[Rfam]
Notes: The record is a 109-nucleotide RNA sequence from Chloroflexi bacterium AL-W, which matches "SAM riboswitch aptamer (S box leader)" in Rfam.
Nucleotides: 109
Stems, first nucleotide, its partner, number of pairs: 001109008013042005021031003025085004043077004048073002050070004081101001086098004
Number, partner (000 for none) and nucleotide at each position: 001109c002108u003107c004106u005105u006104a007103u008102c009000c010000a011000g012000a013042g014041a015040g016039g017038u018000g019000g020000a021031g022030g023029g024000a025085c026084c027083g028082g029023c030022c031021c032000g033000a034000u035000g036000a037000a038017a039016c040015c041014u042013c043077g044076g045075c046074a047000a048073c049072c050070u051069c052068u053067u054000a055000u056000g057000a058000c059000g060000u061000a062000c063000g064000u065000c066000a067053g068052a069051g070050a071000a072049g073048g074046u075045g076044c077043c078000a079000a080000u081101u082028c083027c084026g085025g086098c087097a088096g089095a090000a091000a092000c093000a094000g095089u096088c097087u098086g099000g100000a101081a102008g103007a104006u105005g106004a107003g108002a109001g
The organism belongs to Chloroflexota, within Bacteria.